Purine riboswitch aptamer: a 98-nucleotide RNA from Clostridium sp. Maddingley MBC34-26. Rfam links the family to the GO term purine nucleobase biosynthetic process. A reference for the family is Mandal et al. (2003), "Riboswitches Control Fundamental Biochemical Pathways in Bacillus subtilis and Other Bacteria", Cell. The family's consensus secondary structure is taken from published work.

RNA sequence: AAUAUAGCACAUUUAAAAACUUGUAUAUACCCUGGAUAUGGCAGGGAGUAUCUACCGGAAACCGUAAAAUUCCGACUAUAAGUGAUUUUGUUAUACGC
Number, nucleotide and partner (000 for none) at each position: 001a000002a000003u000004a000005u000006a000007g000008c000009a000010c000011a000012u000013u000014u000015a000016a000017a000018a000019a083020c082021u081022u080023g079024u078025a077026u000027a000028u000029a000030c046031c045032c044033u043034g042035g000036a000037u000038a000039u000040g000041g000042c034043a033044g032045g031046g030047a000048g000049u000050a000051u000052c000053u000054a000055c000056c074057g073058g072059a071060a070061a000062c000063c000064g000065u000066a000067a000068a000069a000070u060071u059072c058073c057074g056075a000076c000077u025078a024079u023080a022081a021082g020083u019084g000085a000086u000087u000088u000089u000090g000091u000092u000093a000094u000095a000096c000097g000098c000